Annotation: This 76-nucleotide RNA sequence from Podarcis muralis belongs to the Rfam family "U1A polyadenylation inhibition element (PIE)". The family's RNA type in Rfam is cis-regulatory element. Rfam's curators write: This family represents the U1A polyadenylation inhibition element (PIE). The family's consensus secondary structure is taken from published work.
RNA sequence: UGCAAAAGCAUUGUACCCAGGGUCUGACGGCCAGACAUUGCACCUGGAGCUUUUCUGUUUUGCAAUAAAACAACCA
Numbered sequence: 001u002g003c004a005a006a007a008g009c010a011u012u013g014u015a016c017c018c019a020g021g022g023u024c025u026g027a028c029g030g031c032c033a034g035a036c037a038u039u040g041c042a043c044c045u046g047g048a049g050c051u052u053u054u055c056u057g058u059u060u061u062g063c064a065a066u067a068a069a070a071c072a073a074c075c076a
Stems, first nucleotide, its partner, number of pairs: 005053005017047004022036005
Gene Ontology term of the family: regulation of mRNA polyadenylation.